[Rfam]
RNA sequence: GCAAUUGACUCUGGAGAGCAGCCUCGAUCGAAGGCUCACCGAAGGGGACGCGUAGAAUAAUUAUCUACGUCAAUCUCUCAGGUAUCAGGACAGAGGGGUUUUC
Numbered sequence: 001g002c003a004a005u006u007g008a009c010u011c012u013g014g015a016g017a018g019c020a021g022c023c024u025c026g027a028u029c030g031a032a033g034g035c036u037c038a039c040c041g042a043a044g045g046g047g048a049c050g051c052g053u054a055g056a057a058u059a060a061u062u063a064u065c066u067a068c069g070u071c072a073a074u075c076u077c078u079c080a081g082g083u084a085u086c087a088g089g090a091c092a093g094a095g096g097g098g099u100u101u102u103c
Base pairs, nucleotide, nucleotide: 006098009095010094011093012092013091020036021035022034023033038083039082040081041079042078045077046076047075050070051069052068053067054066055065056064
Record summary: A member of the RNA family "Glycine riboswitch aptamer" from endosymbiont of Galathealinum brachiosum, 103 nucleotides long. This family represents the bacterial glycine riboswitch. Lineage of the source: Bacteria > Pseudomonadati > Pseudomonadota > Gammaproteobacteria > sulfur-oxidizing symbionts.